[Rfam]
This 72-nucleotide RNA sequence from Skermanella stibiiresistens belongs to the Rfam family "Makes More Granules Regulator RNA (mmgR)". The base pairs follow the family's consensus structure.
RNA sequence: CUGCUUCGCCCUUGUUGGGCGUUUCCUCCCUAGACUCAGGCCGCUCAUUGGGCGGCCUUUUUUCUGCCCGCA
Number, nucleotide and partner (000 for none) at each position: 001c000002u000003g000004c000005u000006u000007c000008g020009c019010c018011c017012u000013u000014g000015u000016u000017g011018g010019g009020c008021g000022u000023u000024u000025c000026c000027u000028c000029c000030c000031u000032a000033g000034a000035c000036u000037c000038a000039g057040g056041c055042c054043g053044c052045u051046c050047a000048u000049u000050g046051g045052g044053c043054g042055g041056c040057c039058u000059u000060u000061u000062u000063u000064c000065u000066g000067c000068c000069c000070g000071c000072a000
The family has 87 seed sequences and 1,791 matches in Rfam 15.1. From the family's description: SuhB later renamed mmgR (makes more granules regulator) was a putative non-coding RNA found multiple times in the Agrobacterium tumefaciens genome and related alpha-proteobacteria. A search with the family's covariance model found it, with a score of 56 bits. It is annotated as a small RNA.